[Rfam]
RNA sequence: AUGUUUAAAUUAGCGCCAUGCACCUCUAUUGGGUAAAGAGUAAAAAUCACUCUUCAGAGUAAAAAUCACUCUUCAGAGUAAAAACCACUCUUCAGAGUAAACACCACUCUUCGGAGUAAAAACCACUCUUCGGAGUAAAGGAUACUCCCUGUUAUUUAGAGGUUAACGAGGAAGAGAGUCAUCGAACUAUUCGGCGGAUGCUCUCUCACAUACUUGGAUGUGUGAUAUGUCGAAAAAACUCCGGGUAACCGGAAUACAAAAACGGCAUAACCAGGAAAA
Numbered sequence: 001a002u003g004u005u006u007a008a009a010u011u012a013g014c015g016c017c018a019u020g021c022a023c024c025u026c027u028a029u030u031g032g033g034u035a036a037a038g039a040g041u042a043a044a045a046a047u048c049a050c051u052c053u054u055c056a057g058a059g060u061a062a063a064a065a066u067c068a069c070u071c072u073u074c075a076g077a078g079u080a081a082a083a084a085c086c087a088c089u090c091u092u093c094a095g096a097g098u099a100a101a102c103a104c105c106a107c108u109c110u111u112c113g114g115a116g117u118a119a120a121a122a123c124c125a126c127u128c129u130u131c132g133g134a135g136u137a138a139a140g141g142a143u144a145c146u147c148c149c150u151g152u153u154a155u156u157u158a159g160a161g162g163u164u165a166a167c168g169a170g171g172a173a174g175a176g177a178g179u180c181a182u183c184g185a186a187c188u189a190u191u192c193g194g195c196g197g198a199u200g201c202u203c204u205c206u207c208a209c210a211u212a213c214u215u216g217g218a219u220g221u222g223u224g225a226u227a228u229g230u231c232g233a234a235a236a237a238a239c240u241c242c243g244g245g246u247a248a249c250c251g252g253a254a255u256a257c258a259a260a261a262a263c264g265g266c267a268u269a270a271c272c273a274g275g276a277a278a279a
Stems, first nucleotide, its partner, number of pairs: 022163007173206005182194004207222005226269007240253005

The family of this 279-nucleotide RNA from Anaerocolumna sedimenticola is "glmS glucosamine-6-phosphate activated ribozyme aptamer". Rfam classes the family as a riboswitch. A search with the family's covariance model found it, with a score of 63 bits. For this family Rfam cites "Control of gene expression by a natural metabolite-responsive ribozyme" (Winkler et al., Nature, 2004). NCBI's taxonomy places the organism under Bacteria, Bacillati, Bacillota, Lachnospiraceae, Anaerocolumna.